[Rfam]
RNA sequence: CUCUUAUUGAGAGAGGUGGAGGGAAGUGCCCUAUGAAACCCGGCAACCGUCAACUUUGUUGAAAUGGUGCCAAUUCACCCGAAGCAUACGCUUUGGAAGAUGAGAG
Numbered sequence: 001c002u003c004u005u006a007u008u009g010a011g012a013g014a015g016g017u018g019g020a021g022g023g024a025a026g027u028g029c030c031c032u033a034u035g036a037a038a039c040c041c042g043g044c045a046a047c048c049g050u051c052a053a054c055u056u057u058g059u060u061g062a063a064a065u066g067g068u069g070c071c072a073a074u075u076c077a078c079c080c081g082a083a084g085c086a087u088a089c090g091c092u093u094u095g096g097a098a099g100a101u102g103a104g105a106g
Stems, first nucleotide, its partner, number of pairs: 001106008013041001015040003021031003026078003042071004047067002050062003075098001080095006
SAM riboswitch aptamer (S box leader): a 106-nucleotide RNA from Bacillus gobiensis. NCBI's taxonomy places the organism under Bacteria, Bacillati, Bacilli, Caryophanales, Bacillus.